Rfam assigns this 49-nucleotide RNA sequence from Rhodobacteraceae bacterium R_SAG9 to the family "SAM/SAH riboswitch aptamer". Pairs were carried over by alignment from the consensus structure, which is taken from published work. Gene Ontology terms of the family: regulation of gene expression and S-adenosylmethionine metabolic process. NCBI's taxonomy places the organism under Bacteria, Pseudomonadati, Alphaproteobacteria, Rhodobacterales, Paracoccaceae.
RNA sequence: UUAUCGUCACAACGGCUUCCUGACGUGGCGAUCGACUUUUAAUGGAGCA
Numbered sequence: 001u002u003a004u005c006g007u008c009a010c011a012a013c014g015g016c017u018u019c020c021u022g023a024c025g026u027g028g029c030g031a032u033c034g035a036c037u038u039u040u041a042a043u044g045g046a047g048c049a
Stems, first nucleotide, its partner, number of pairs: 004031007013022002015048003019045002